[Rfam]
RNA sequence: CGAGUCGGCAGGGCGACCGCAGUGGGCAGUGCCGUUGGCGCUGGCGAUUGAGGAAAGUCCGGACUCCGCAGGGCAGGGUGGUUGUUAACGGCAACCCGGGGCGACCCGCGGGACAGUGCCACAGAGAACAGACCGCCUGGUGCAAGCCAGGUAAGGGUGAAACGGUGGUGUAAGAGACCACCAGCACCCCGGGUGACCGGGGUGGCUCGGUAAACCCCACCCGGAGCAAGGCCAAGAGGGAGCCGCACGCGGCUCCUGCGCAGGCGAUCGAGGGCGGCCCGCCCGAGUCUGCGGGUAGGCCGCACGAGCCCGUCGGCGACGGCGGGCCAAGAUGGAUGGUCGCCUGAGACAGAAUCCGGCUUACGGCCGGCUCGUCCG
Numbered sequence: 001c002g003a004g005u006c007g008g009c010a011g012g013g014c015g016a017c018c019g020c021a022g023u024g025g026g027c028a029g030u031g032c033c034g035u036u037g038g039c040g041c042u043g044g045c046g047a048u049u050g051a052g053g054a055a056a057g058u059c060c061g062g063a064c065u066c067c068g069c070a071g072g073g074c075a076g077g078g079u080g081g082u083u084g085u086u087a088a089c090g091g092c093a094a095c096c097c098g099g100g101g102c103g104a105c106c107c108g109c110g111g112g113a114c115a116g117u118g119c120c121a122c123a124g125a126g127a128a129c130a131g132a133c134c135g136c137c138u139g140g141u142g143c144a145a146g147c148c149a150g151g152u153a154a155g156g157g158u159g160a161a162a163c164g165g166u167g168g169u170g171u172a173a174g175a176g177a178c179c180a181c182c183a184g185c186a187c188c189c190c191g192g193g194u195g196a197c198c199g200g201g202g203u204g205g206c207u208c209g210g211u212a213a214a215c216c217c218c219a220c221c222c223g224g225a226g227c228a229a230g231g232c233c234a235a236g237a238g239g240g241a242g243c244c245g246c247a248c249g250c251g252g253c254u255c256c257u258g259c260g261c262a263g264g265c266g267a268u269c270g271a272g273g274g275c276g277g278c279c280c281g282c283c284c285g286a287g288u289c290u291g292c293g294g295g296u297a298g299g300c301c302g303c304a305c306g307a308g309c310c311c312g313u314c315g316g317c318g319a320c321g322g323c324g325g326g327c328c329a330a331g332a333u334g335g336a337u338g339g340u341c342g343c344c345u346g347a348g349a350c351a352g353a354a355u356c357c358g359g360c361u362u363a364c365g366g367c368c369g370g371c372u373c374g375u376c377c378g
Stems, first nucleotide, its partner, number of pairs: 001374009011364001012344007020050004025045001027043005055362003059359005064226004071280004076222005081095005096110001097108004111217002116215002118211003133156002135152007164182006184206001185204008230301004260292006272284004308327008
RNA: Bacterial RNase P class A